[Rfam]
RNA: Small nucleolar SNORD12/SNORD106
Organism: Exaiptasia diaphana
RNA sequence: GCAUUGUGGUAUGAUGAUUUAAUCUUUUUUCCCCAGCUUAUCGAUCAUGGUGAUACUGUGCUGUAUUUUCAAGCCAAUCUUGUCUGACCACACUAU
Number, nucleotide and partner (000 for none) at each position: 001g096002c000003a094004u000005u092006g091007u090008g089009g088010u000011a000012u000013g000014a000015u000016g000017a000018u000019u000020u000021a000022a000023u000024c000025u000026u000027u000028u000029u000030u000031c000032c000033c000034c000035a000036g000037c000038u000039u000040a000041u000042c000043g000044a000045u000046c000047a000048u000049g000050g000051u000052g000053a000054u000055a000056c000057u000058g000059u000060g000061c000062u000063g000064u000065a000066u000067u000068u000069u000070c000071a000072a000073g000074c000075c000076a000077a000078u000079c000080u000081u000082g000083u000084c000085u000086g000087a000088c009089c008090a007091c006092a005093c000094u003095a000096u001